[Rfam]
RNA sequence: CUAUGCCUGGCUCCCUGUAUGCCACUCGCGUAGUUACCAAUCAAAACUAACGAUUGGCUACUGCGGAUGGCGUGCGAGGAGCCAAGCAUGG
Numbered sequence: 001c002u003a004u005g006c007c008u009g010g011c012u013c014c015c016u017g018u019a020u021g022c023c024a025c026u027c028g029c030g031u032a033g034u035u036a037c038c039a040a041u042c043a044a045a046a047c048u049a050a051c052g053a054u055u056g057g058c059u060a061c062u063g064c065g066g067a068u069g070g071c072g073u074g075c076g077a078g079g080a081g082c083c084a085a086g087c088a089u090g091g
Stems, first nucleotide, its partner, number of pairs: 001091006008084007016076009027065003
RNA: mir-160 microRNA precursor family
Organism: Musa balbisiana